[Rfam]
This 59-nucleotide RNA sequence from Ornithinicoccus hortensis belongs to the Rfam family "msiK RNA". Rfam classes the family as a cis-regulatory element.
RNA sequence: GCGGGGGAUCCUUUACAACGGACCGUCCGGCACGUUCCUGCCGGUGAAGGAAGGCAUCA
Number, nucleotide and partner (000 for none) at each position: 001g000002c000003g000004g000005g000006g000007g000008a000009u051010c050011c049012u048013u047014u046015a045016c000017a000018a000019c000020g000021g000022a000023c000024c000025g000026u000027c044028c043029g042030g041031c040032a039033c000034g000035u000036u000037c000038c000039u032040g031041c030042c029043g028044g027045u015046g014047a013048a012049g011050g010051a009052a000053g000054g000055c000056a000057u000058c000059a000
The base pairs follow the family's consensus structure, which is taken from published work.